This 98-nucleotide sequence belongs to the Rfam family "DUF3577 RNA". The sequence is in the family's curated seed alignment. Rfam classes the family as a cis-regulatory element.
RNA sequence: CAAUCGCAUAGCGUGGCAACACGCGAAAGUCGUCUGAAAUGCCGGUAUCACCUUUGGGUGUGACGACACUCAGCCGAUGAGGCAAAUGCAUCGGCACU
Numbered sequence: 001c002a003a004u005c006g007c008a009u010a011g012c013g014u015g016g017c018a019a020c021a022c023g024c025g026a027a028a029g030u031c032g033u034c035u036g037a038a039a040u041g042c043c044g045g046u047a048u049c050a051c052c053u054u055u056g057g058g059u060g061u062g063a064c065g066a067c068a069c070u071c072a073g074c075c076g077a078u079g080a081g082g083c084a085a086a087u088g089c090a091u092c093g094g095c096a097c098u
Stems, first nucleotide, its partner, number of pairs: 011024005030066005049060004073095007